The family of this 76-nucleotide RNA from Cetobacterium ceti is "c-di-GMP-I riboswitch aptamer". It scores 61 bits against the family's covariance model. From the family's description: GEMM was predicted in a large-scale screen for bacterial structured RNA regulatory elements.
RNA sequence: AUUAUAUCUUGGCAAAAUAAAGGAAACUUUAUGACGCAAAGCUAUAGGGCCUUUAAUAUGGUAGCCAGCUGCAAAA
Numbered sequence: 001a002u003u004a005u006a007u008c009u010u011g012g013c014a015a016a017a018u019a020a021a022g023g024a025a026a027c028u029u030u031a032u033g034a035c036g037c038a039a040a041g042c043u044a045u046a047g048g049g050c051c052u053u054u055a056a057u058a059u060g061g062u063a064g065c066c067a068g069c070u071g072c073a074a075a076a
Stems, first nucleotide, its partner, number of pairs: 012037002017032006040070004047066002049062003